[Rfam]
RNA: Purine riboswitch aptamer
RNA sequence: CGCUGCGUGCAGCCACCGACCCGUAUAAUGCUGGGAAUAGGCCCGGCAGUCUCUACCGGGCGACCGGAAAUCGCCCGACUACGGGGGAGUGCGGAUUGGAA
Numbered sequence: 001c002g003c004u005g006c007g008u009g010c011a012g013c014c015a016c017c018g019a020c021c022c023g024u025a026u027a028a029u030g031c032u033g034g035g036a037a038u039a040g041g042c043c044c045g046g047c048a049g050u051c052u053c054u055a056c057c058g059g060g061c062g063a064c065c066g067g068a069a070a071u072c073g074c075c076c077g078a079c080u081a082c083g084g085g086g087g088a089g090u091g092c093g094g095a096u097u098g099g100a101a
Stems, first nucleotide, its partner, number of pairs: 020085006029048007057077007